[Rfam]
Rfam assigns this 162-nucleotide sequence from Corymbia citriodora to the family "U1 spliceosomal RNA". Rfam describes the family as follows. U1 is a small nuclear RNA (snRNA) component of the spliceosome (involved in pre-mRNA splicing). The organism belongs to Corymbia citriodora, within Eukaryota. Pairs were carried over by alignment from the consensus structure, which is taken from published work.
RNA sequence: GCACUUACCUGGACGGGGUCGAUGGGCCAUCAAGAGAGCUCAUGGCCUGGGUCUAGUGACCUCCAUUGCACUCAGGAGGGGUGCUAGCCCAAGGUCGACCCAAGCGGUCGAGCCUACGUCAUAAUUUGUGACAGCGGGGGCCUGCGUUCGCGCGGCCCCUAC
Number, nucleotide and partner (000 for none) at each position: 001g000002c000003a000004c000005u000006u000007a000008c000009c000010u000011g000012g120013a119014c118015g117016g048017g047018g046019u045020c044021g043022a000023u042024g041025g040026g039027c038028c000029a000030u000031c000032a000033a000034g000035a000036g000037a000038g027039c026040u025041c024042a023043u021044g020045g019046c018047c017048u016049g090050g089051g088052u000053c000054u087055a000056g084057u083058g082059a000060c080061c079062u078063c076064c075065a000066u000067u000068g000069c000070a000071c000072u000073c000074a000075g064076g063077a000078g062079g061080g060081g000082u058083g057084c056085u000086a000087g054088c051089c050090c049091a000092a115093g114094g113095u111096c110097g109098a000099c107100c106101c000102a000103a000104g000105c000106g100107g099108u000109c097110g096111a095112g000113c094114c093115u092116a000117c015118g014119u013120c012121a000122u000123a000124a000125u000126u000127u000128g000129u000130g000131a000132c000133a000134g000135c000136g160137g159138g158139g157140g000141c000142c000143u154144g153145c152146g151147u000148u000149c000150g000151c146152g145153c144154g143155g000156c000157c139158c138159c137160u136161a000162c000